RNA sequence: GUCGAGUUCAGUAACGCGGGCUUGUGAUCCAUGUGGAGACUAUAAAGUGAUGGGACGUUGGGUCGAUCUCAUUGGGCCGGGUUCGGAUUGGGCUUUAUUCUGGCCUGCCCAUACCAAGUUGGGAGUCGAGGCAUGGUUCUUGAGCGAAGGCUUGGGAGUUGUGUUUCUUAGAGUGGGGGAGACUGCGUGAGGCUGGUUUCACAGAACAGCGUUUCACCUCCCUCUCUUGACGGUGGAAGGAUAACGGGCCAUUGCCUUCCGAGCCCACUAUGACCCAAUAAGCCGUUUCCGAUUGAACCAUCACUUUU
Dot-bracket structure: (((((((((........))))))....(((....))))))...((((((((((..(((((((.((..((.((((((.(((((((((...(((.(......(((((((.((.(.(((.((((((((..((((((((((((((((((....))))))))))))))))))(....).(((((.....((((....(((......)))....))))....)))))..))))))))..))).)))....)))))))..)))).)))))))).....).)))))).)).)).)).))).))..)))))))))).
Numbered sequence: 001g002u003c004g005a006g007u008u009c010a011g012u013a014a015c016g017c018g019g020g021c022u023u024g025u026g027a028u029c030c031a032u033g034u035g036g037a038g039a040c041u042a043u044a045a046a047g048u049g050a051u052g053g054g055a056c057g058u059u060g061g062g063u064c065g066a067u068c069u070c071a072u073u074g075g076g077c078c079g080g081g082u083u084c085g086g087a088u089u090g091g092g093c094u095u096u097a098u099u100c101u102g103g104c105c106u107g108c109c110c111a112u113a114c115c116a117a118g119u120u121g122g123g124a125g126u127c128g129a130g131g132c133a134u135g136g137u138u139c140u141u142g143a144g145c146g147a148a149g150g151c152u153u154g155g156g157a158g159u160u161g162u163g164u165u166u167c168u169u170a171g172a173g174u175g176g177g178g179g180a181g182a183c184u185g186c187g188u189g190a191g192g193c194u195g196g197u198u199u200c201a202c203a204g205a206a207c208a209g210c211g212u213u214u215c216a217c218c219u220c221c222c223u224c225u226c227u228u229g230a231c232g233g234u235g236g237a238a239g240g241a242u243a244a245c246g247g248g249c250c251a252u253u254g255c256c257u258u259c260c261g262a263g264c265c266c267a268c269u270a271u272g273a274c275c276c277a278a279u280a281a282g283c284c285g286u287u288u289c290c291g292a293u294u295g296a297a298c299c300a301u302c303a304c305u306u307u308u
Stems, first nucleotide, its partner, number of pairs: 001040003004023006028037003044307010056295002058292003061288002064285002068282002071279006078272001079266008090257003094254001101251007109240002112238001114236003118231008128167018168173001175221005185212004193204003